Rfam assigns this 78-nucleotide sequence from Anolis carolinensis to the family "Small nucleolar RNA SNORD81". The organism belongs to Anolis, within Eukaryota. Rfam links the family to the GO terms nucleolus and RNA processing. The family's consensus secondary structure was predicted with PFOLD. For this family Rfam cites "Classification of gas5 as a multi-small-nucleolar-RNA (snoRNA) host gene and a member of the 5'-terminal oligopyrimidine gene family reveals common features of snoRNA host genes" (Smith and Steitz, Mol Cell Biol, 1998).

[Rfam]
RNA sequence: GAAUAGAUUAAUGAUGAUAACCUAGCCUUGAACUCUCUCUCUGACUAGAUGAUGGAAAAUACAAGGUCUGAUCUAUUC
Numbered sequence: 001g002a003a004u005a006g007a008u009u010a011a012u013g014a015u016g017a018u019a020a021c022c023u024a025g026c027c028u029u030g031a032a033c034u035c036u037c038u039c040u041c042u043g044a045c046u047a048g049a050u051g052a053u054g055g056a057a058a059a060u061a062c063a064a065g066g067u068c069u070g071a072u073c074u075a076u077u078c
Stems, first nucleotide, its partner, number of pairs: 001078007